[Rfam]
RNA: ASpks TB sRNA
RNA sequence: CUUCAGCGAGCCGAGCCACAGUGGCUGGUCCCGCUCCUGGCCGUAGGUGGCGAUCAACGCCUGGGCCUC
Numbered sequence: 001c002u003u004c005a006g007c008g009a010g011c012c013g014a015g016c017c018a019c020a021g022u023g024g025c026u027g028g029u030c031c032c033g034c035u036c037c038u039g040g041c042c043g044u045a046g047g048u049g050g051c052g053a054u055c056a057a058c059g060c061c062u063g064g065g066c067c068u069c
Stems, first nucleotide, its partner, number of pairs: 014026004031065001032059002038053001041050003